[Rfam]
RNA: msiK RNA
RNA sequence: AUCCGGCACCCGACCACAACGGAUCGUCCGGCACGUACCUGCCGGUGGAGGGAACCACAA
Numbered sequence: 001a002u003c004c005g006g007c008a009c010c011c012g013a014c015c016a017c018a019a020c021g022g023a024u025c026g027u028c029c030g031g032c033a034c035g036u037a038c039c040u041g042c043c044g045g046u047g048g049a050g051g052g053a054a055c056c057a058c059a060a
Base pairs, nucleotide, nucleotide: 010052011051014048015047016046028045029044030043031042032041033040